[Rfam]
RNA sequence: AAGAAAAUAUAAGCGCCUGAACCAGCUGUCGGGUAACAGUUGGUUGACGAGGAAGGGGUUAAUCGAGAAUUUCGGCGGAUGCCCCUCGGUGAACCACCACCGUGAGGAUCUCUCCAAAAACAGAGAGCAAUCUCUGGGACAAAGGGAUAUCCAGUGGGGAAA
Numbered sequence: 001a002a003g004a005a006a007a008u009a010u011a012a013g014c015g016c017c018u019g020a021a022c023c024a025g026c027u028g029u030c031g032g033g034u035a036a037c038a039g040u041u042g043g044u045u046g047a048c049g050a051g052g053a054a055g056g057g058g059u060u061a062a063u064c065g066a067g068a069a070u071u072u073c074g075g076c077g078g079a080u081g082c083c084c085c086u087c088g089g090u091g092a093a094c095c096a097c098c099a100c101c102g103u104g105a106g107g108a109u110c111u112c113u114c115c116a117a118a119a120a121c122a123g124a125g126a127g128c129a130a131u132c133u134c135u136g137g138g139a140c141a142a143a144g145g146g147a148u149a150u151c152c153a154g155u156g157g158g159g160a161a162a
Stems, first nucleotide, its partner, number of pairs: 020045008029036001054086005063075004087102005106152004111147002121136006
RNA: glmS glucosamine-6-phosphate activated ribozyme aptamer